[Rfam]
RNA sequence: AGCAUAUUUUGGCAAACUUAUCGAAAGGUAAGGACGCAAAGCUAUGGAUCUAAGGGUUUUACCUAUGAUUGCCAGGUUGCCAAC
Numbered sequence: 001a002g003c004a005u006a007u008u009u010u011g012g013c014a015a016a017c018u019u020a021u022c023g024a025a026a027g028g029u030a031a032g033g034a035c036g037c038a039a040a041g042c043u044a045u046g047g048a049u050c051u052a053a054g055g056g057u058u059u060u061a062c063c064u065a066u067g068a069u070u071g072c073c074a075g076g077u078u079g080c081c082a083a084c
Stems, first nucleotide, its partner, number of pairs: 012037002017032006040078004045074003048069003055063003